GA-cis RNA: an 89-nucleotide RNA. The family's consensus secondary structure is taken from published work. The family's RNA type in Rfam is small RNA.

RNA sequence: UUCCAUAGGAAACAAAAUGGACAAAGUUCAUUAUAUAUAAGUGUUUCCGACGAUUAGCCACCGACCAAAGGGAGGGGGCAAUACAUAGU
Numbered sequence: 001u002u003c004c005a006u007a008g009g010a011a012a013c014a015a016a017a018u019g020g021a022c023a024a025a026g027u028u029c030a031u032u033a034u035a036u037a038u039a040a041g042u043g044u045u046u047c048c049g050a051c052g053a054u055u056a057g058c059c060a061c062c063g064a065c066c067a068a069a070g071g072g073a074g075g076g077g078g079c080a081a082u083a084c085a086u087a088g089u
Stems, first nucleotide, its partner, number of pairs: 008048006016032006057079003061075002065071002